[Rfam]
A member of the RNA family "DUF805b RNA" from Kordia sp. SMS9, 32 nucleotides long. It is annotated as a cis-regulatory element. The base pairs follow the family's consensus structure, which is taken from published work. It scores 39 bits against the family's covariance model.
RNA sequence: AAGGCGGAAUCUGAAAAGCCAAUGAGUAGGAA
Numbered sequence: 001a002a003g004g005c006g007g008a009a010u011c012u013g014a015a016a017a018g019c020c021a022a023u024g025a026g027u028a029g030g031a032a
Stems, first nucleotide, its partner, number of pairs: 003020003010031003